[Rfam]
RNA sequence: CCAAUGCUGAUCUGGAUUCGCUUCUCAGUCAUACAAGCUUCUUGAAUAGUCGAUAUGACUAGAAACGAAUUCAGCACAGCGUUGCG
Numbered sequence: 001c002c003a004a005u006g007c008u009g010a011u012c013u014g015g016a017u018u019c020g021c022u023u024c025u026c027a028g029u030c031a032u033a034c035a036a037g038c039u040u041c042u043u044g045a046a047u048a049g050u051c052g053a054u055a056u057g058a059c060u061a062g063a064a065a066c067g068a069a070u071u072c073a074g075c076a077c078a079g080c081g082u083u084g085c086g
Stems, first nucleotide, its partner, number of pairs: 005081005012074009022065002027060007

Annotation
The record is an 86-nucleotide RNA sequence from Caenorhabditis bovis, which matches "mir-44 microRNA precursor family" in Rfam. Pairs were carried over by alignment from the consensus structure, which was predicted with RNAalifold. Taxonomically the source falls in Caenorhabditis (Eukaryota, Eumetazoa, Chromadorea, Rhabditida).